RNA sequence: AGCAUAACGUUGAACAAGAGGAGUAACUAGUUAUUGACUUUUAGAGAGAGAACGAGAAGGUGGGAUGUUCUUAGGGAUGACUAGUGAAGGUAGCUUGGGAGUUUUUAUCUUGAAACUUUAAGCAACAUGGAAAGUAGAGAUAAACGAGUUGUGACCGUUAAUUCACACAAAGAGGUAGUAGGAAACUACUACAAAUUAGGUGGUACCGCGUAAAUUAAUACGUCCUAAAA
Numbered sequence: 001a002g003c004a005u006a007a008c009g010u011u012g013a014a015c016a017a018g019a020g021g022a023g024u025a026a027c028u029a030g031u032u033a034u035u036g037a038c039u040u041u042u043a044g045a046g047a048g049a050g051a052a053c054g055a056g057a058a059g060g061u062g063g064g065a066u067g068u069u070c071u072u073a074g075g076g077a078u079g080a081c082u083a084g085u086g087a088a089g090g091u092a093g094c095u096u097g098g099g100a101g102u103u104u105u106u107a108u109c110u111u112g113a114a115a116c117u118u119u120a121a122g123c124a125a126c127a128u129g130g131a132a133a134g135u136a137g138a139g140a141u142a143a144a145c146g147a148g149u150u151g152u153g154a155c156c157g158u159u160a161a162u163u164c165a166c167a168c169a170a171a172g173a174g175g176u177a178g179u180a181g182g183a184a185a186c187u188a189c190u191a192c193a194a195a196u197u198a199g200g201u202g203g204u205a206c207c208g209c210g211u212a213a214a215u216u217a218a219u220a221c222g223u224c225c226u227a228a229a230a
Stems, first nucleotide, its partner, number of pairs: 007102002015097004026085006038074002048072006105143007145157002175192007197227004208223005

A member of the RNA family "T-box leader" from Enterococcus ratti, 230 nucleotides long. The base pairs follow the family's consensus structure, which is taken from published work. The source organism's lineage runs through Bacteria, Bacilli, Lactobacillales, Enterococcaceae and Enterococcus. By type it is a cis-regulatory leader. Rfam describes the family as follows. Uncharged tRNA acts as the effector for transcription antitermination of genes in the T-box leader family. T-boxes are found upstream of many aminoacyl-tRNA synthetase genes and some amino acid biosynthetic genes usually in Gram-positive bacteria. Rfam 15.1 lists 19,395 matches to the family in 1,923 species.